[Rfam]
RNA sequence: GGAACCCGAUGUAACUGGCGACAUUUGUGGAGUACCACAUUGGAGCAUCGGGACAUACGGCCGGUCGCCUGGGCAGAGCAU
Numbered sequence: 001g002g003a004a005c006c007c008g009a010u011g012u013a014a015c016u017g018g019c020g021a022c023a024u025u026u027g028u029g030g031a032g033u034a035c036c037a038c039a040u041u042g043g044a045g046c047a048u049c050g051g052g053a054c055a056u057a058c059g060g061c062c063g064g065u066c067g068c069c070u071g072g073g074c075a076g077a078g079c080a081u
Base pairs, nucleotide, nucleotide: 005052006051007050008049009048010047011046012045015042017069018068019067020066021065027038028037029036030035058076060074061073062072
Dot-bracket structure: ....((((((((..(.[[[[[.....((((....))))...)..)))))))).....(.(((..]]]]]..))).).....
Rfam assigns this 81-nucleotide sequence from Paenibacillus antri to the family "ZMP/ZTP riboswitch aptamer (pfl RNA motif)". The family's consensus secondary structure is taken from published work.